The record is an 82-nucleotide RNA from Cryptotermes secundus, which matches "mir-184 microRNA precursor family" in Rfam.
RNA sequence: UUUCUUACGUUCCCUUGUCAUUCUCCGGUCCGGUGUUGCCAUCUGACGACUGGACGGAGAACUGAUAAGGGCCUGUGGGAAA
Numbered sequence: 001u002u003u004c005u006u007a008c009g010u011u012c013c014c015u016u017g018u019c020a021u022u023c024u025c026c027g028g029u030c031c032g033g034u035g036u037u038g039c040c041a042u043c044u045g046a047c048g049a050c051u052g053g054a055c056g057g058a059g060a061a062c063u064g065a066u067a068a069g070g071g072c073c074u075g076u077g078g079g080a081a082a
Stems, first nucleotide, its partner, number of pairs: 012071009021061006029053002